[Rfam]
RNA sequence: AUAAGUCUUCAGGGCAGGGCGUAAUUCCCUACCGGUGGUAAAUUCAUUGUAAUUCAAUGGAAAGCCCACGAGCGCUUAAGUAGGUUAAACUAUUUAAGGACAAGCAGAUUCGGUGUAAAUCCGAAGCCGACGGUAUAGUCCGGAUGGGAGAAGGCAGUA
Numbered sequence: 001a002u003a004a005g006u007c008u009u010c011a012g013g014g015c016a017g018g019g020c021g022u023a024a025u026u027c028c029c030u031a032c033c034g035g036u037g038g039u040a041a042a043u044u045c046a047u048u049g050u051a052a053u054u055c056a057a058u059g060g061a062a063a064g065c066c067c068a069c070g071a072g073c074g075c076u077u078a079a080g081u082a083g084g085u086u087a088a089a090c091u092a093u094u095u096a097a098g099g100a101c102a103a104g105c106a107g108a109u110u111c112g113g114u115g116u117a118a119a120u121c122c123g124a125a126g127c128c129g130a131c132g133g134u135a136u137a138g139u140c141c142g143g144a145u146g147g148g149a150g151a152a153g154g155c156a157g158u159a
Stems, first nucleotide, its partner, number of pairs: 005155006017029003031139002033129002035069004064127002072105002109125005131142003
RNA: FMN riboswitch aptamer (RFN element)